[Rfam]
RNA sequence: AACGAAGUAGCCGAAAAUCGUUAAAAGAGUAGGCA
Numbered sequence: 001a002a003c004g005a006a007g008u009a010g011c012c013g014a015a016a017a018u019c020g021u022u023a024a025a026a027g028a029g030u031a032g033g034c035a
Stems, first nucleotide, its partner, number of pairs: 002021004010034003